[Rfam]
Shown here is an 86-nucleotide RNA from Granulicella rosea, a member of the family "Glycine riboswitch aptamer".

RNA sequence: AACGCUAUCGCGGGAGAGAUCGACCAGUCGACGCCGAAGGAGCAACCGCCCCGGAAACUCUCAGGCAAAAGGACCGCGUUAGCGAA
Numbered sequence: 001a002a003c004g005c006u007a008u009c010g011c012g013g014g015a016g017a018g019a020u021c022g023a024c025c026a027g028u029c030g031a032c033g034c035c036g037a038a039g040g041a042g043c044a045a046c047c048g049c050c051c052c053g054g055a056a057a058c059u060c061u062c063a064g065g066c067a068a069a070a071g072g073a074c075c076g077c078g079u080u081a082g083c084g085a086a
Base pairs, nucleotide, nucleotide: 006081007080009078010077011076012075013074020031021030022029023028033066034065035064036062037061040060041059042058046054047053